[Rfam]
RNA sequence: AGAGUUCGCCGGACAGUCGCUGUCUUGCCUUGGCAGGAGGGAGGAAAGUCCGGGCUCCAUAGAGCAGAGUGCCAGAUAACGUCUGGGCGGUGUAAGCCGACGGCCAGUGCAGCAGAGAGUAGACCGCCUAAGUAUCUUCGGAUAACGGUAAGGGUGAAAGGGUGCGGUAAGAGCGCACCGCGUGGGUGGCAACAUUCCACGGCAUGGUAAACCCCACUCGGAGCAAGACCAAAUAGGGAUCCAUUAGGUGUGGCUCGCAUCGGAUCCGGGUAGGUCGCUUGAGGCGUGCAGUGAUGUACGUCCCAGAUGAAUGACUGUCUAUUACAGAACCCGGCUUAUAGGCGAACUCUAAUC
Dot-bracket structure: ((((((((((((((((((.((.((((((....)))))).))....[[[.[[[[[((((...[[[[.((((((((((.....)))))(((((....)))).)((...((((.............(((((....((((....))))..)))..)).......((((((.......))))))(((((((((....))).))))).)...))..)))))))))))))...((((......((((((....(((((.]]]]))))))))))).....))))......((((((((....))))))))..........)))))))..........]]]]]]]].).))))))))))....

Bacterial RNase P class A: a 354-nucleotide sequence from Neptunomonas concharum.
The family's RNA type in Rfam is ribozyme.
Taxonomically the source falls in Neptunomonas (Bacteria, Pseudomonadota, Gammaproteobacteria, Oceanospirillaceae).
For this family Rfam cites "Ribonuclease P: unity and diversity in a tRNA processing ribozyme" (Frank and Pace, Annu Rev Biochem, 1998).
The match comes from Rfam's covariance-model search (340 bits).